The record is a 139-nucleotide RNA sequence from Aerococcus christensenii, which matches "glmS glucosamine-6-phosphate activated ribozyme aptamer" in Rfam.
RNA sequence: CAAAAGUAAAUAGCGCCAGACUGCUGAGGCAGUGACGAGGACUGGAUUUAUCGAAAAUUCGGCGGAUGAUCCAGGGGUUGCACAAUCCAAAGAUUAGUAACAAAGCUCUAAGGGGCCAAAAGGCUAAUCGGGUGUGAAG
Numbered sequence: 001c002a003a004a005a006g007u008a009a010a011u012a013g014c015g016c017c018a019g020a021c022u023g024c025u026g027a028g029g030c031a032g033u034g035a036c037g038a039g040g041a042c043u044g045g046a047u048u049u050a051u052c053g054a055a056a057a058u059u060c061g062g063c064g065g066a067u068g069a070u071c072c073a074g075g076g077g078u079u080g081c082a083c084a085a086u087c088c089a090a091a092g093a094u095u096a097g098u099a100a101c102a103a104a105g106c107u108c109u110a111a112g113g114g115g116c117c118a119a120a121a122g123g124c125u126a127a128u129c130g131g132g133u134g135u136g137a138a139g
Base pairs, nucleotide, nucleotide: 020033021032022031023030024029042074043073044072045071046070051062052061053060054059075088076087077086078085079084092129093128094127095126096125097124098123106114107113108112

For this family Rfam cites "Control of gene expression by a natural metabolite-responsive ribozyme" (Winkler et al., Nature, 2004). By type it is a riboswitch. Taxonomically the source falls in Aerococcus (Bacteria, Bacillati, Bacillota, Bacilli).